[Rfam]
RNA sequence: GGAAGAGAUCGCACCCCGGUGGGGCGCUCGGUCUUCAAAACCGGGAGGGGCGGCCAAGCGGUCCCUGGUGGGUUCGACUCCCACUCUCUUCC
Numbered sequence: 001g002g003a004a005g006a007g008a009u010c011g012c013a014c015c016c017c018g019g020u021g022g023g024g025c026g027c028u029c030g031g032u033c034u035u036c037a038a039a040a041c042c043g044g045g046a047g048g049g050g051c052g053g054c055c056a057a058g059c060g061g062u063c064c065c066u067g068g069u070g071g072g073u074u075c076g077a078c079u080c081c082c083a084c085u086c087u088c089u090u091c092c
Base pairs, nucleotide, nucleotide: 001092002091003090004089005088006087007086008085010026011025012024014023015022016021027045028044029043030042031041032040047065048064049063050062051061069083070082071081072080
The record is a 92-nucleotide sequence from Sulfuritalea sp., which matches "Selenocysteine transfer RNA" in Rfam. The source organism's lineage runs through Bacteria, Pseudomonadati, Nitrosomonadales, Sterolibacteriaceae and Sulfuritalea. The match comes from Rfam's covariance-model search (74 bits). The base pairs follow the family's consensus structure, which is taken from published work.